[Rfam]
RNA sequence: UUUAAACAUGAAGAGUAGGGCUCACGCCCUUGCCAACCUGCCCGGUCCGGGCAAGGUGGACUCGGUUUCUAUACCGACAUGCGGCUGUCAAUCGGCAAUCAAGCGGACCGAU
Dot-bracket structure: ......((((....(.(((((....)))))).((..((((((.[.[[..))).))).))..................))))..((((.....))))........]].]....
Overview:
The family of this 112-nucleotide sequence from Novipirellula herctigrandis is "SAM-I/IV (S-adenosyl methionine) riboswitch aptamer". The literature on the family includes a 2008 paper in RNA by Weinberg et al., "The aptamer core of SAM-IV riboswitches mimics the ligand-binding site of SAM-I riboswitches". A search with the family's covariance model found it, with a score of 55 bits. The family's consensus secondary structure is taken from published work. Its family is annotated with S-adenosylmethionine metabolic process and regulation of gene expression in the Gene Ontology. Rfam 15.1 lists 567 matches to the family in 508 species. The family is grouped with related families in Rfam's "SAM clan". NCBI's taxonomy places the organism under Bacteria, Pseudomonadati, Planctomycetota, Pirellulaceae, Novipirellula.